[Rfam]
RNA sequence: AAGAAACAAGGGCAAACCUGUUGAAAAGCAGGGACGCAAAGCCAAGGGUCUAAGGUUUGAAGACUAUGACAGCCGGUUGCCACA
Numbered sequence: 001a002a003g004a005a006a007c008a009a010g011g012g013c014a015a016a017c018c019u020g021u022u023g024a025a026a027a028g029c030a031g032g033g034a035c036g037c038a039a040a041g042c043c044a045a046g047g048g049u050c051u052a053a054g055g056u057u058u059g060a061a062g063a064c065u066a067u068g069a070c071a072g073c074c075g076g077u078u079g080c081c082a083c084a
Base pairs, nucleotide, nucleotide: 012037013036017032018031019030020029021028022027040078041077042076043075046074047073048070049069050068055064056063057062

About this RNA
A member of the RNA family "c-di-GMP-I riboswitch aptamer" from Blautia sp. OF03-15BH, 84 nucleotides long.